[Rfam]
RNA sequence: UUGAAGGACUUGAAGACUUCAACUUGCAUAGUUGAAGGACUUGAAGACUUCAACUUGCAUAGUUGAAGGACUUGAAGACUUCAACU
Numbered sequence: 001u002u003g004a005a006g007g008a009c010u011u012g013a014a015g016a017c018u019u020c021a022a023c024u025u026g027c028a029u030a031g032u033u034g035a036a037g038g039a040c041u042u043g044a045a046g047a048c049u050u051c052a053a054c055u056u057g058c059a060u061a062g063u064u065g066a067a068g069g070a071c072u073u074g075a076a077g078a079c080u081u082c083a084a085c086u
Base pairs, nucleotide, nucleotide: 001084002083003082004081005080006079010075011074012073013072017068018067019066020065021064025059026058027057028056032053033052034051035050036049037048